[Rfam]
The record is a 132-nucleotide RNA from Anser cygnoides, which matches "Small nucleolar RNA SNORA9" in Rfam. It scores 86 bits against the family's covariance model. The organism belongs to Anser, within Eukaryota.
RNA sequence: CCGCAAGCCUUCCAGCGUGGUGGGGUCUGCAGUGGCCCCGUCCAUUCCUGCAGCGCUUGCCAGAGCACCCCCAGGAGCUCUGGGGCCUCCCCCUGCACCCCGUGGGGAGGCCGUCGAAGUCUUGGGACACAU
Number, nucleotide and partner (000 for none) at each position: 001c000002c000003g060004c059005a058006a057007g056008c055009c000010u000011u000012c000013c000014a000015g000016c000017g000018u044019g043020g042021u000022g000023g038024g037025g036026u035027c034028u000029g000030c000031a000032g000033u000034g027035g026036c025037c024038c023039c000040g000041u000042c020043c019044a018045u000046u000047c000048c000049u000050g000051c000052a000053g000054c000055g008056c007057u006058u005059g004060c003061c000062a000063g000064a000065g000066c000067a000068c000069c000070c000071c125072c124073a123074g122075g121076a000077g000078c000079u000080c000081u000082g000083g000084g000085g000086c110087c109088u108089c107090c106091c105092c000093c000094u102095g101096c000097a000098c000099c000100c000101c095102g094103u000104g000105g091106g090107g089108a088109g087110g086111c000112c000113g000114u000115c000116g000117a000118a000119g000120u000121c075122u074123u073124g072125g071126g000127a000128c000129a000130c000131a000132u000

Rfam describes the family as follows. ACA9 is a member of the H/ACA class of snoRNA that guide the sites of modification of uridines to pseudouridines.
Pairs were carried over by alignment from the consensus structure, which was predicted with PFOLD.
Clan: SNORA9 clan.
By type it is an H/ACA-box small nucleolar RNA.